[Rfam]
RNA: HNH endonuclease-associated RNA and ORF (HEARO) RNA
Organism: Dictyobacter arantiisoli
RNA sequence: GUCAGGAACCCCACGGCUAAAGCCGGGGGCUUGCUCUGGUAAGCCCACACCUGACCAGUCUUAGUCUUCAUUGACUCCGUUCGGGAAGAAAUAGGUACGGCAGGGUGCAUGCCAGCCCUGCCCGCUACGGCAACGGGUUAAACAGUUGUACAGGGUUAAGGCAGUGCCUGUUGCGUGAAACCUUCCCGAACAUUGACGAGGCAAACAUUAC
Numbered sequence: 001g002u003c004a005g006g007a008a009c010c011c012c013a014c015g016g017c018u019a020a021a022g023c024c025g026g027g028g029g030c031u032u033g034c035u036c037u038g039g040u041a042a043g044c045c046c047a048c049a050c051c052u053g054a055c056c057a058g059u060c061u062u063a064g065u066c067u068u069c070a071u072u073g074a075c076u077c078c079g080u081u082c083g084g085g086a087a088g089a090a091a092u093a094g095g096u097a098c099g100g101c102a103g104g105g106u107g108c109a110u111g112c113c114a115g116c117c118c119u120g121c122c123c124g125c126u127a128c129g130g131c132a133a134c135g136g137g138u139u140a141a142a143c144a145g146u147u148g149u150a151c152a153g154g155g156u157u158a159a160g161g162c163a164g165u166g167c168c169u170g171u172u173g174c175g176u177g178a179a180a181c182c183u184u185c186c187c188g189a190a191c192a193u194u195g196a197c198g199a200g201g202c203a204a205a206c207a208u209u210a211c
Stems, first nucleotide, its partner, number of pairs: 001055006010029002012026001016023002030043004058197003063076004079191010095128002099122008110203004130174009142165002145162003149158002